[Rfam]
RNA sequence: CCCAGCGCUAUGCGCUGGGCUGGUAUAUUGCGCUCUUGCAGAGCU
Numbered sequence: 001c002c003c004a005g006c007g008c009u010a011u012g013c014g015c016u017g018g019g020c021u022g023g024u025a026u027a028u029u030g031c032g033c034u035c036u037u038g039c040a041g042a043g044c045u
Base pairs, nucleotide, nucleotide: 001019002018003017004016005015006014007013008012032044033043034042035041036040
RNA: Acido-Lenti-1 RNA